[Rfam]
RNA: U7 small nuclear RNA
Organism: Sapajus apella
RNA sequence: GAGUGUUCCCAUUCUUUUAAAAUUUGUCUAGCAGGCUUUUCCAGUGAAAACUGGAAAGCCCUC
Numbered sequence: 001g002a003g004u005g006u007u008c009c010c011a012u013u014c015u016u017u018u019a020a021a022a023u024u025u026g027u028c029u030a031g032c033a034g035g036c037u038u039u040u041c042c043a044g045u046g047a048a049a050a051c052u053g054g055a056a057a058g059c060c061c062u063c
Base pairs, nucleotide, nucleotide: 034060035059036058037057038056040055041054042053043052044051045050